RNA: Eukaryotic large subunit ribosomal RNA, nucleotides 439 to 897
RNA sequence: CGGGUGGAACCGCCGGUGCGAUCAGCGGAAUCCAGCUCGCCGGGCAGGCGGCUCCUGGUGGCGACGUAGACUUGUCCUUCUCGGAGGACGGGCUCGUCGUUGUCAGAGGGUUCGUCCCCGUCGGCGUAUCUUCCGCUGUGUCGCGAGUCGCGACCGGCUCGAAGUGCUUCGUUUCGACUGGUUGCAGGCGAGGAGCGCGCUUUGCGUUGCAUCCGUCUCCGGACUGCCUGCGCCGGUCGGUACCACGGCGAACGUAGCUUCGGGCCGAGGAACGGCCCCGUCCUCGCUCCCGACUCAGUCUCCCGGCGACGUCGCGGCUGUCUUGACUGCCUCUCUGAGGCUUAACAGUGCAAGUGCGGUCGCGUGUCGGCGUCGGCGAGGCGGCGGGCAUUGGAGGACGGUUUAGAGGGUCCGCGGCUGGCCGUGGCGGCACUCUUCCCGACCCGUCUUGAAACACGG
Numbered sequence: 001c002g003g004g005u006g007g008a009a010c011c012g013c014c015g016g017u018g019c020g021a022u023c024a025g026c027g028g029a030a031u032c033c034a035g036c037u038c039g040c041c042g043g044g045c046a047g048g049c050g051g052c053u054c055c056u057g058g059u060g061g062c063g064a065c066g067u068a069g070a071c072u073u074g075u076c077c078u079u080c081u082c083g084g085a086g087g088a089c090g091g092g093c094u095c096g097u098c099g100u101u102g103u104c105a106g107a108g109g110g111u112u113c114g115u116c117c118c119c120g121u122c123g124g125c126g127u128a129u130c131u132u133c134c135g136c137u138g139u140g141u142c143g144c145g146a147g148u149c150g151c152g153a154c155c156g157g158c159u160c161g162a163a164g165u166g167c168u169u170c171g172u173u174u175c176g177a178c179u180g181g182u183u184g185c186a187g188g189c190g191a192g193g194a195g196c197g198c199g200c201u202u203u204g205c206g207u208u209g210c211a212u213c214c215g216u217c218u219c220c221g222g223a224c225u226g227c228c229u230g231c232g233c234c235g236g237u238c239g240g241u242a243c244c245a246c247g248g249c250g251a252a253c254g255u256a257g258c259u260u261c262g263g264g265c266c267g268a269g270g271a272a273c274g275g276c277c278c279c280g281u282c283c284u285c286g287c288u289c290c291c292g293a294c295u296c297a298g299u300c301u302c303c304c305g306g307c308g309a310c311g312u313c314g315c316g317g318c319u320g321u322c323u324u325g326a327c328u329g330c331c332u333c334u335c336u337g338a339g340g341c342u343u344a345a346c347a348g349u350g351c352a353a354g355u356g357c358g359g360u361c362g363c364g365u366g367u368c369g370g371c372g373u374c375g376g377c378g379a380g381g382c383g384g385c386g387g388g389c390a391u392u393g394g395a396g397g398a399c400g401g402u403u404u405a406g407a408g409g410g411u412c413c414g415c416g417g418c419u420g421g422c423c424g425u426g427g428c429g430g431c432a433c434u435c436u437u438c439c440c441g442a443c444c445c446g447u448c449u450u451g452a453a454a455c456a457c458g459g
Base pairs, nucleotide, nucleotide: 001441002440003439004438006436007435008434010430011429012428017099020098021097022096024094025093026092103421104420105419106418109415444459445458446457447456